[Rfam]
RNA sequence: AUACUUACCUGGCAGGGGAGAUACCAUGAUCAUAAAGGUGGUUCUCCUUUGGUGAGGCUCGGCCAUUGCACUCCGGCCAAGCUGACCCAGAUGAAUUUCUCAAAUGUAGAAAUCUCAACUGCACUAUUUGUGGUAGUGGGGACUGCGUUCGCGCUCUCCCCUG
Numbered sequence: 001a002u003a004c005u006u007a008c009c010u011g012g013c014a015g016g017g018g019a020g021a022u023a024c025c026a027u028g029a030u031c032a033u034a035a036a037g038g039u040g041g042u043u044c045u046c047c048u049u050u051g052g053u054g055a056g057g058c059u060c061g062g063c064c065a066u067u068g069c070a071c072u073c074c075g076g077c078c079a080a081g082c083u084g085a086c087c088c089a090g091a092u093g094a095a096u097u098u099c100u101c102a103a104a105u106g107u108a109g110a111a112a113u114c115u116c117a118a119c120u121g122c123a124c125u126a127u128u129u130g131u132g133g134u135a136g137u138g139g140g141g142a143c144u145g146c147g148u149u150c151g152c153g154c155u156c157u158c159c160c161c162u163g
Base pairs, nucleotide, nucleotide: 012122013121014120015119016048017047018046019045020044021043023042024041025040026039027038049090050089051088052087054086056083057082058081061078062077063076064075092117093116094115095113096111097110099109100108138161139160140159141158142157145154146153147152
RNA: U1 spliceosomal RNA